Rfam assigns this 200-nucleotide RNA from Saccharobesus litoralis to the family "Group II catalytic intron D1-D4-3". About the family: Group II introns are found in rRNA, tRNA and mRNA of organelles in fungi, plants and protists, and also in mRNA in bacteria. For this family Rfam cites "The ins and outs of group II introns" (Bonen and Vogel, Trends Genet, 2001).
[Rfam]
RNA sequence: GUCACUGUGAAGUGGGGUGGAGAGUAACUGGAAACGAAAUACCAGUCCGUAGGAGACGAACCUGAUUCGGUUUGAUGUUGCGACGAGCCUUCUAGGUUAUGGCGAAGUCUGGAACACACCUUAUACGCUGUUUUGGUGGCUAAAGCGAUAUAAGGGCGGCAUUGGAUGGUUGAGGAUGGAAUGGUAGGAAGGUAUAGCAU
Numbered sequence: 001g002u003c004a005c006u007g008u009g010a011a012g013u014g015g016g017g018u019g020g021a022g023a024g025u026a027a028c029u030g031g032a033a034a035c036g037a038a039a040u041a042c043c044a045g046u047c048c049g050u051a052g053g054a055g056a057c058g059a060a061c062c063u064g065a066u067u068c069g070g071u072u073u074g075a076u077g078u079u080g081c082g083a084c085g086a087g088c089c090u091u092c093u094a095g096g097u098u099a100u101g102g103c104g105a106a107g108u109c110u111g112g113a114a115c116a117c118a119c120c121u122u123a124u125a126c127g128c129u130g131u132u133u134u135g136g137u138g139g140c141u142a143a144a145g146c147g148a149u150a151u152a153a154g155g156g157c158g159g160c161a162u163u164g165g166a167u168g169g170u171u172g173a174g175g176a177u178g179g180a181a182u183g184g185u186a187g188g189a190a191g192g193u194a195u196a197g198c199a200u
Stems, first nucleotide, its partner, number of pairs: 002015005029199002034193002040186004045182001046180005061175003065171001070167003074163007082109003087103003
Dot-bracket structure: .(((((....))))).............((...((....((((.((((((..........(((.(....(((.(((((((.(((..(((...........)))...)))...............................................))))))).)))...).)))))))).))))).....))....)).

Description
Gene Ontology term of the family: Group II intron splicing.